[Rfam]
RNA: TPP riboswitch aptamer (THI element)
RNA sequence: AGAAUAAGGACGGGGAGCUGACCGGAGUUGGCUGAGAGGAAACUAUAUCGUUUCGACCCAUAACCUGAUUUGGAUAAUGCCAACGUAGGGAAUCGUGAUGAGAAUUUAA
Numbered sequence: 001a002g003a004a005u006a007a008g009g010a011c012g013g014g015g016a017g018c019u020g021a022c023c024g025g026a027g028u029u030g031g032c033u034g035a036g037a038g039g040a041a042a043c044u045a046u047a048u049c050g051u052u053u054c055g056a057c058c059c060a061u062a063a064c065c066u067g068a069u070u071u072g073g074a075u076a077a078u079g080c081c082a083a084c085g086u087a088g089g090g091a092a093u094c095g096u097g098a099u100g101a102g103a104a105u106u107u108a109a
Base pairs, nucleotide, nucleotide: 007096009094010093012059013058014057017032018031019030020029021028039054040053041052042051043050064089065088066087067086070083071082072081073080